[Rfam]
Shown here is a 122-nucleotide RNA from Streptomyces tardus, a member of the family "Streptomyces-metK RNA". Taxonomically the source falls in Streptomyces (Bacteria, Actinomycetota, Actinomycetes, Streptomycetaceae). It scores 81 bits against the family's covariance model. By type it is a small RNA. Pairs were carried over by alignment from the consensus structure, which is taken from published work.

RNA sequence: GUGAGACACCCGGUCCGUACGGCAGUACUACCGAUAAGCUGUCGCCAGGACCGCCACCGAAGGGGCGCAGCCCCCGGCGGUCCGUUAAUGAUUCAGCCAGCAGCCGCUGCAACCUCAGGGAG
Numbered sequence: 001g002u003g004a005g006a007c008a009c010c011c012g013g014u015c016c017g018u019a020c021g022g023c024a025g026u027a028c029u030a031c032c033g034a035u036a037a038g039c040u041g042u043c044g045c046c047a048g049g050a051c052c053g054c055c056a057c058c059g060a061a062g063g064g065g066c067g068c069a070g071c072c073c074c075c076g077g078c079g080g081u082c083c084g085u086u087a088a089u090g091a092u093u094c095a096g097c098c099a100g101c102a103g104c105c106g107c108u109g110c111a112a113c114c115u116c117a118g119g120g121a122g
Stems, first nucleotide, its partner, number of pairs: 048083006063075003098109004